[Rfam]
RNA sequence: UCCAUGGCUGAAGAAUCGUCACUAGUCGAAGUUUGCAAAUGGAGUGGUAUUUUAUAUGCUACUCAAUAUCUUUAUUUAAAAAUUAAACUUUGGGUAGAAAGUCUCCCACCUGUUCAUAUGCGGAAAACGUAAUGAGAUUUAAAAAUUUUAAAUUCUUUAAAUCAACUCAUUAAAAGUGAUAGAUGAGGAAAGGUCACCUUUUCUUAUUUAUUCAUUUUUUUGGACUAUUGAUUUGUAACAAAUCAAUAGUUUUUUCGGUACUGAAAUUGGUUUUUCAAUUUCAAACGAUAGUUAUGACGAUUGCCUUGUUAAUGGGAUUUAUUUCAUUACAUGGUAACCCAAUGGAGCUUACUUUCUUAGCUCAUGG
Numbered sequence: 001u002c003c004a005u006g007g008c009u010g011a012a013g014a015a016u017c018g019u020c021a022c023u024a025g026u027c028g029a030a031g032u033u034u035g036c037a038a039a040u041g042g043a044g045u046g047g048u049a050u051u052u053u054a055u056a057u058g059c060u061a062c063u064c065a066a067u068a069u070c071u072u073u074a075u076u077u078a079a080a081a082a083u084u085a086a087a088c089u090u091u092g093g094g095u096a097g098a099a100a101g102u103c104u105c106c107c108a109c110c111u112g113u114u115c116a117u118a119u120g121c122g123g124a125a126a127a128c129g130u131a132a133u134g135a136g137a138u139u140u141a142a143a144a145a146u147u148u149u150a151a152a153u154u155c156u157u158u159a160a161a162u163c164a165a166c167u168c169a170u171u172a173a174a175a176g177u178g179a180u181a182g183a184u185g186a187g188g189a190a191a192g193g194u195c196a197c198c199u200u201u202u203c204u205u206a207u208u209u210a211u212u213c214a215u216u217u218u219u220u221u222g223g224a225c226u227a228u229u230g231a232u233u234u235g236u237a238a239c240a241a242a243u244c245a246a247u248a249g250u251u252u253u254u255u256c257g258g259u260a261c262u263g264a265a266a267u268u269g270g271u272u273u274u275u276c277a278a279u280u281u282c283a284a285a286c287g288a289u290a291g292u293u294a295u296g297a298c299g300a301u302u303g304c305c306u307u308g309u310u311a312a313u314g315g316g317a318u319u320u321a322u323u324u325c326a327u328u329a330c331a332u333g334g335u336a337a338c339c340c341a342a343u344g345g346a347g348c349u350u351a352c353u354u355u356c357u358u359a360g361c362u363c364a365u366g367g
Stems, first nucleotide, its partner, number of pairs: 002367004007361003010356002014302006026093007042064009099350003103347004119131004188203006213270001218266006227259004232242004304334002307331003

Notes:
A member of the RNA family "RNase MRP" from Vanderwaltozyma polyspora, 367 nucleotides long. By type it is a ribozyme.